Annotation: Shown here is a 150-nucleotide RNA sequence from Streptococcus suis, a member of the family "Listeria sRNA rli38".

RNA sequence: GUUACUCUUAAAUAAGAGUCACAUCAUAAUUAGAUUGCGGAAUCCCUAUUUACCAGUCUUUGAGAGCGAUAAGCGAUUGAUAGAAACUGAUAAAUUGAUUUGGUUUCCUGCCAAAAAUCCUGCCAAAAAUUCUUUGGCAGGAUUUUUGUU
Numbered sequence: 001g002u003u004a005c006u007c008u009u010a011a012a013u014a015a016g017a018g019u020c021a022c023a024u025c026a027u028a029a030u031u032a033g034a035u036u037g038c039g040g041a042a043u044c045c046c047u048a049u050u051u052a053c054c055a056g057u058c059u060u061u062g063a064g065a066g067c068g069a070u071a072a073g074c075g076a077u078u079g080a081u082a083g084a085a086a087c088u089g090a091u092a093a094a095u096u097g098a099u100u101u102g103g104u105u106u107c108c109u110g111c112c113a114a115a116a117a118u119c120c121u122g123c124c125a126a127a128a129a130u131u132c133u134u135u136g137g138c139a140g141g142a143u144u145u146u147u148g149u150u
Base pairs, nucleotide, nucleotide: 010106011105012104050083051082052081054079055078056077057075059073060072061071062070087097089095115146116145117144118142119141120140121139122138123137124136125135126134127133
Dot-bracket structure: .........(((.....................................(((.((((.((((.......)))).).))).)))...(.(.....).)......)))........(((((((((((((.....)))))))))).)))....

It is one of the family's seed sequences. By type it is a small RNA. The source organism's lineage runs through Bacteria, Bacillota, Streptococcaceae, Streptococcus and Streptococcus suis.